Rfam assigns this 99-nucleotide sequence from Clostridium perfringens to the family "Guanidine-I riboswitch aptamer". The sequence is in the family's curated seed alignment.
Nucleotides: 099
Stems, first nucleotide, its partner, number of pairs: 007055006015045002020042002022039001023036005057071005074094001076097001080092003
Number, partner (000 for none) and nucleotide at each position: 001000u002000a003000u004000a005000a006000a007055g008054u009053u010052u011051u012050c013000u014000a015045g016044g017000g018000u019000u020042c021041c022039g023036u024035a025034a026033c027032u028000u029000u030000u031000u032027a033026g034025u035024u036023a037000g038000u039022c040000u041021g042020g043000u044016c045015c046000a047000a048000g049000a050012g051011a052010a053009a054008a055007c056000g057071c058070a059069c060068a061067g062000a063000a064000a065000g066000a067061c068060u069059g070058u071057g072000a073000a074094c075000a076097c077000g078000g079000a080092a081091g082090g083000a084000u085000a086000a087000a088000a089000g090082c091081c092080u093000g094074g095000g096000a097076g098000a099000u